Rfam assigns this 90-nucleotide RNA from Hibiscus trionum to the family "mir-166 microRNA precursor family". The base pairs follow the family's consensus structure, which was predicted with PFOLD.
RNA sequence: GUUGCGGGAAAUGUCGUCUGGUUCGAAGCCAUUCAUUUGAAUCUUACAUGUCCUUUGAACGAUUUCGGACCAGACAUCAUUCCCCUCAAC
Dot-bracket structure: ((((.(((.((((..((((((..(((......................................)))..))))))..)))).))).))))
A reference for the family is Reinhart et al. (2002), "MicroRNAs in plants", Genes Dev. The organism belongs to Hibiscus, within Eukaryota. Rfam describes the family as follows. This family represents the plant microRNA (miRNA) precursor mir-166.